Shown here is a 173-nucleotide RNA from Bergeriella denitrificans, a member of the family "NrrF RNA".
It scores 63 bits against the family's covariance model.
It is annotated as an antisense RNA.
Gene Ontology term of the family: regulation of translation, ncRNA-mediated.
For this family Rfam cites "A novel fur- and iron-regulated small RNA, NrrF, is required for indirect fur-mediated regulation of the sdhA and sdhC genes in Neisseria meningitidis" (Mellin et al., J Bacteriol, 2007).

[Rfam]
RNA sequence: UUACCCGACAGCCGUUCUGCCGGGCCAUUAAACACCGGUUAUUUAUUCCUUUUUUAUCUUGGUUUUACUGCUUUGCGGAGUACGCUUAUACGAGAAAGACUGUUCCCUUAAAUAUUCAGAUACUCAAAACCGAAACACCCGACCCGCCCCUAAUCAGGGCGGGUCGGGUGUUU
Numbered sequence: 001u002u003a004c005c006c007g008a009c010a011g012c013c014g015u016u017c018u019g020c021c022g023g024g025c026c027a028u029u030a031a032a033c034a035c036c037g038g039u040u041a042u043u044u045a046u047u048c049c050u051u052u053u054u055u056a057u058c059u060u061g062g063u064u065u066u067a068c069u070g071c072u073u074u075g076c077g078g079a080g081u082a083c084g085c086u087u088a089u090a091c092g093a094g095a096a097a098g099a100c101u102g103u104u105c106c107c108u109u110a111a112a113u114a115u116u117c118a119g120a121u122a123c124u125c126a127a128a129a130c131c132g133a134a135a136c137a138c139c140c141g142a143c144c145c146g147c148c149c150c151u152a153a154u155c156a157g158g159g160c161g162g163g164u165c166g167g168g169u170g171u172u173u
Stems, first nucleotide, its partner, number of pairs: 007104004015095002017092001021084002023081001025078002133173016